[Rfam]
RNA sequence: UUUCAUCCCGGAGAUGGCAUGCCUCCCGGAGUUCCUGCUCCGAACCGCCCAUCCGGGCUGAUGAUGCCUACCGAUAA
Dot-bracket structure: .........[[[[..(((((..]]]]....................((((....)))).....))))).........
A member of the RNA family "Fluoride riboswitch aptamer (crcB RNA motif)" from Sideroxydans sp. CL21, 77 nucleotides long. Taxonomically the source falls in Sideroxydans (Bacteria, Pseudomonadati, Pseudomonadota, Nitrosomonadales).